[Rfam]
Rfam assigns this 144-nucleotide RNA from Erwinia sorbitola to the family "isrN Hfq binding RNA". The family's consensus secondary structure was predicted with WAR. It scores 133 bits against the family's covariance model. The family's RNA type in Rfam is small RNA. NCBI's taxonomy places the organism under Bacteria, Pseudomonadati, Gammaproteobacteria, Erwiniaceae, Erwinia.
RNA sequence: AAAUAACGGGUUCAUCGCGGGGUAGUAUCCGGGCGGUAAUGGUAAACCGUUCUGCUCAGAUUCAGACUCCGGCAGGCCUGACGAAUACUGAGUCCGAAUGUCGUUAUCAGAUGAGCUACCAGCUCAAGCUUAAAGACUGGUUUU
Numbered sequence: 001a002a003a004u005a006a007c008g009g010g011u012u013c014a015u016c017g018c019g020g021g022g023u024a025g026u027a028u029c030c031g032g033g034c035g036g037u038a039a040u041g042g043u044a045a046a047c048c049g050u051u052c053u054g055c056u057c058a059g060a061u062u063c064a065g066a067c068u069c070c071g072g073c074a075g076g077c078c079u080g081a082c083g084a085a086u087a088c089u090g091a092g093u094c095c096g097a098a099u100g101u102c103g104u105u106a107u108c109a110g111a112u113g114a115g116c117u118a119c120c121a122g123c124u125c126a127a128g129c130u131u132a133a134a135g136a137c138u139g140g141u142u143u144u
Base pairs, nucleotide, nucleotide: 026113027112028111029110031108032107049078051076052075053074054073055072059068061066081104082103083102084101118141119140121138122137